[Rfam]
RNA: small nucleolar RNA snoR126
Nucleotides: 091
Base pairs, nucleotide, nucleotide: 001090002089003088004087
Number, partner (000 for none) and nucleotide at each position: 001090a002089g003088g004087c005000g006000a007000u008000g009000a010000a011000g012000a013000a014000a015000c016000a017000a018000a019000a020000c021000a022000u023000u024000u025000c026000u027000c028000g029000a030000u031000g032000c033000u034000g035000a036000u037000a038000u039000a040000a041000c042000a043000u044000u045000a046000u047000u048000a049000u050000g051000u052000u053000a054000u055000a056000c057000u058000u059000u060000u061000u062000u063000g064000a065000u066000g067000a068000c069000c070000u071000a072000u073000u074000u075000g076000u077000g078000c079000g080000u081000g082000u083000c084000u085000g086000a087004g088003c089002c090001u091000c